A member of the RNA family "Histone 3' UTR stem-loop" from Microcebus murinus, 46 nucleotides long.
Its family is annotated with mRNA 3'-end processing by stem-loop binding and cleavage in the Gene Ontology.
[Rfam]
RNA sequence: CCAAAGGCUCUUUUCAGAGCCAUUCCAAUCUCAGUUAAGAGCUUUA
Numbered sequence: 001c002c003a004a005a006g007g008c009u010c011u012u013u014u015c016a017g018a019g020c021c022a023u024u025c026c027a028a029u030c031u032c033a034g035u036u037a038a039g040a041g042c043u044u045u046a
Stems, first nucleotide, its partner, number of pairs: 006021006
Rfam 15.1 lists 44,596 matches to the family in 976 species. Rfam's curators write: The mRNAs of metazoan histone genes lack a poly-A tail. 3' end processing occurs at a site between a highly conserved stem-loop (modelled by this family) and a purine rich region around 20 nts downstream (the histone downstream element, or HDE). The stem-loop is bound by a 31 kDa stem-loop binding protein (SLBP - also termed the histone hairpin binding protein, or HBP). Together with U7 snRNA binding of the HDE, SLBP binding nucleate s the formation of the processing complex. The histone 3' UTR stem-loop is also involved in nucleocytoplasmic transport of the mRNA, and in stability regulation and translation efficiency in the cytoplasm.